[Rfam]
Nucleotides: 066
Base pairs, nucleotide, nucleotide: 014039015038016037017036018035022030023029042065043064044063045062046061047060048059049058050057051056
Number, partner (000 for none) and nucleotide at each position: 001000g002000a003000c004000c005000u006000u007000g008000c009000g010000u011000c012000a013000a014039c015038a016037g017036c018035c019000g020000a021000a022030g023029c024000g025000c026000u027000u028000c029023g030022c031000g032000c033000a034000a035018g036017g037016c038015u039014g040000a041000c042065g043064g044063c045062u046061g047060g048059u049058g050057g051056c052000u053000c054000a055000u056051g057050c058049c059048a060047c061046c062045g063044g064043c065042c066000u
Notes
Pseudomonas sRNA P26: a 66-nucleotide RNA from Metapseudomonas resinovorans. This small RNA (sRNA) was computationally identified in the genome of the opportunistic pathogen Pseudomonas aeruginosa and its expression verified by northern blot analysis. Rfam classes the family as a non-coding RNA gene. Lineage of the source: Bacteria > Pseudomonadati > Gammaproteobacteria > Pseudomonadaceae > Metapseudomonas resinovorans. The literature on the family includes a 2006 paper in Nucleic Acids Res by Livny et al., "Identification of 17 Pseudomonas aeruginosa sRNAs and prediction of sRNA-encoding genes in 10 diverse pathogens using the bioinformatic tool sRNAPredict2". The base pairs follow the family's consensus structure, which was predicted with RNAalifold.